[Rfam]
RNA sequence: UGUCCCUGUAUUUGUAAGUCGCUUUGGAUAAAAGAGUCUGCUAAAUGACUAACU
Numbered sequence: 001u002g003u004c005c006c007u008g009u010a011u012u013u014g015u016a017a018g019u020c021g022c023u024u025u026g027g028a029u030a031a032a033a034g035a036g037u038c039u040g041c042u043a044a045a046u047g048a049c050u051a052a053c054u
Stems, first nucleotide, its partner, number of pairs: 013043001014041003020036001022034004

A member of the RNA family "UnaL2 LINE 3' element" from Sinocyclocheilus anshuiensis, 54 nucleotides long. Pairs were carried over by alignment from the consensus structure, which is taken from published work. Rfam's curators write: The eel long interspersed element (LINE) UnaL2 and its partner short interspersed element (SINE) share a conserved 3' tail containing a stem-loop that is critical for their retrotransposition. On this family, see Baba et al., RNA 2004: "Solution structure of an RNA stem-loop derived from the 3' conserved region of eel LINE UnaL2". Lineage of the source: Eukaryota > Bilateria > Clupeocephala > Cypriniformes > Sinocyclocheilus.